[Rfam]
RNA: Flavivirus 3' UTR cis-acting replication element (CRE)
RNA sequence: CUGGGAAAGACCAGAGAUCCUGCUGUCUCUACAACAUCAAUCCAGGCACAGAGCGCCGCGAGAUGGAUUGGUGUUGUUGAUCCAACAGGUUCU
Numbered sequence: 001c002u003g004g005g006a007a008a009g010a011c012c013a014g015a016g017a018u019c020c021u022g023c024u025g026u027c028u029c030u031a032c033a034a035c036a037u038c039a040a041u042c043c044a045g046g047c048a049c050a051g052a053g054c055g056c057c058g059c060g061a062g063a064u065g066g067a068u069u070g071g072u073g074u075u076g077u078u079g080a081u082c083c084a085a086c087a088g089g090u091u092c093u
Stems, first nucleotide, its partner, number of pairs: 001014004015093003019089003032076011045057003